[Rfam]
Nucleotides: 093
Base pairs, nucleotide, nucleotide: 002084003083004082005081006080007079008078009077013052014051015050016049018047029042030041031040032039033038053070055068056067057066058065
Number, partner (000 for none) and nucleotide at each position: 001000g002084g003083u004082c005081g006080g007079g008078u009077a010000g011000c012000g013052u014051g015050u016049a017000g018047u019000a020000c021000a022000u023000a024000c025000a026000a027000c028000a029042c030041c031040c032039a033038g034000c035000u036000u037000g038033c039032u040031g041030g042029g043000g044000a045000a046000a047018a048000c049016u050015a051014c052013a053070g054000g055068c056067c057066g058065u059000c060000u061000c062000u063000u064000u065058g066057c067056g068055g069000g070053u071000u072000u073000g074000a075000a076000g077009u078008g079007c080006c081005c082004g083003a084002c085000a086000a087000c088000c089000c090000u091000a092000u093000u

About this RNA: sRNA-Xcc1: a 93-nucleotide RNA from Serratia symbiotica. Taxonomically the source falls in Serratia symbiotica (Bacteria, Pseudomonadati, Pseudomonadota, Yersiniaceae).